[Rfam]
The record is a 91-nucleotide RNA from Sciurus vulgaris, which matches "G-CSF factor stem-loop destabilising element (SLDE)" in Rfam. Rfam's curators write: This family represents the granulocyte colony-stimulating factor stem-loop destabilising element (G-CSF SLDE). G-CSF is secreted by fibroblasts and endothelial cells in response to the inflammatory mediators interleukin-1 (IL-1) and tumour necrosis factor alpha and by activated macrophages. It is annotated as a cis-regulatory element. A reference for the family is Putland et al. (2002), "RNA destabilization by the granulocyte colony-stimulating factor stem-loop destabilizing element involves a single stem-loop that promotes deadenylation", Mol Cell Biol. Rfam links the family to the GO term nuclear-transcribed mRNA poly(A) tail shortening. Rfam 15.1 lists 132 matches to the family in 132 species. Pairs were carried over by alignment from the consensus structure, which is taken from published work. Taxonomically the source falls in Sciurus (Eukaryota, Dipnotetrapodomorpha, Mammalia, Boreoeutheria).
RNA sequence: CUGAGGUAUCUACCUUGGGGACCUGGGAAGCAUCAUCUCCCAUGUGGGAGACAAGCCAUCCCUGUUUAAUAUUUAAACAGCAGUAGAUCCU
Numbered sequence: 001c002u003g004a005g006g007u008a009u010c011u012a013c014c015u016u017g018g019g020g021a022c023c024u025g026g027g028a029a030g031c032a033u034c035a036u037c038u039c040c041c042a043u044g045u046g047g048g049a050g051a052c053a054a055g056c057c058a059u060c061c062c063u064g065u066u067u068a069a070u071a072u073u074u075a076a077a078c079a080g081c082a083g084u085a086g087a088u089c090c091u
Base pairs, nucleotide, nucleotide: 004024005023006022007021009019010018011017034055036051037050038049039048040047041046062080063079064078065077066076067075068074069073
Dot-bracket structure: ...((((.(((.....))).)))).........(.((((((....))))))...)......((((((((...))))))))...........